[Rfam]
Small nucleolar RNA SNORD56: a 71-nucleotide sequence from Hipposideros armiger.

RNA sequence: CCACGAUGACGGUAACAUUUUUCGUCAACUGCAGUUCACCUAGUGAGUGUAGAUACUUUGGGUCUGAGUGG
Numbered sequence: 001c002c003a004c005g006a007u008g009a010c011g012g013u014a015a016c017a018u019u020u021u022u023c024g025u026c027a028a029c030u031g032c033a034g035u036u037c038a039c040c041u042a043g044u045g046a047g048u049g050u051a052g053a054u055a056c057u058u059u060g061g062g063u064c065u066g067a068g069u070g071g
Base pairs, nucleotide, nucleotide: 002070003069004068008026009025010024011023
Dot-bracket structure: .(((...((((...........)))).........................................))).
The source organism's lineage runs through Eukaryota, Opisthokonta, Euteleostomi, Tetrapoda and Hipposideros. The literature on the family includes a 2002 paper in Mol Cell Biol by Galardi et al., "Purified box C/D snoRNPs are able to reproduce site-specific 2'-O-methylation of target RNA in vitro". A search with the family's covariance model found it, with a score of 88 bits. Gene Ontology terms of the family: nucleolus and RNA processing. By type it is a C/D-box small nucleolar RNA.